[Rfam]
RNA sequence: AGUGUAGAUAGAGGUUGCAAUAAUUAAUAUUAGUAUUGAUGAGGUAAGCACGAUGAUUUAAUAUGAAAGGAAUUAUUGCCGAAGUUUAUAAUUUUGCUUAAGGAUUAUAAGCUGGUUUUGUAUAAAAUAUAUACAAAACUGUCACAAUAAUUUGUGGGGAGCUAUCUUUGUG
Numbered sequence: 001a002g003u004g005u006a007g008a009u010a011g012a013g014g015u016u017g018c019a020a021u022a023a024u025u026a027a028u029a030u031u032a033g034u035a036u037u038g039a040u041g042a043g044g045u046a047a048g049c050a051c052g053a054u055g056a057u058u059u060a061a062u063a064u065g066a067a068a069g070g071a072a073u074u075a076u077u078g079c080c081g082a083a084g085u086u087u088a089u090a091a092u093u094u095u096g097c098u099u100a101a102g103g104a105u106u107a108u109a110a111g112c113u114g115g116u117u118u119u120g121u122a123u124a125a126a127a128u129a130u131a132u133a134c135a136a137a138a139c140u141g142u143c144a145c146a147a148u149a150a151u152u153u154g155u156g157g158g159g160a161g162c163u164a165u166c167u168u169u170g171u172g
Stems, first nucleotide, its partner, number of pairs: 006167006017079009033064007083113012114140011142157006
Dot-bracket structure: .....((((((.....(((((((((.......(((((((..................)))))))......)))))))))...((((((((((((.......))))))))))))(((((((((((.....))))))))))).((((((....))))))....)))))).....

A member of the RNA family "Lysine riboswitch aptamer" from Clostridium sp. 7_2_43FAA, 172 nucleotides long. From the family's description: Riboswitches are metabolite binding domains within certain messenger RNAs that serve as precision sensors for their corresponding targets. Allosteric rearrangement of mRNA structure is mediated by ligand binding, and this results in modulation of gene expression. This family includes riboswitches that sense lysine in a number of genes involved in lysine metabolism, including lysC. It scores 114 bits against the family's covariance model.